RNA sequence: GCUGGUGCUUCAUAUAGAUGACAGGGAAUCCUGGGCGGUAGUGGCGUGAUUGCAAGACGUUAUUACCGUUUACAUA
Numbered sequence: 001g002c003u004g005g006u007g008c009u010u011c012a013u014a015u016a017g018a019u020g021a022c023a024g025g026g027a028a029u030c031c032u033g034g035g036c037g038g039u040a041g042u043g044g045c046g047u048g049a050u051u052g053c054a055a056g057a058c059g060u061u062a063u064u065a066c067c068g069u070u071u072a073c074a075u076a
Stems, first nucleotide, its partner, number of pairs: 022033004034070014
Rfam assigns this 76-nucleotide sequence from Clostridium sp. AM58-1XD to the family "COG2827 RNA". It scores 80 bits against the family's covariance model.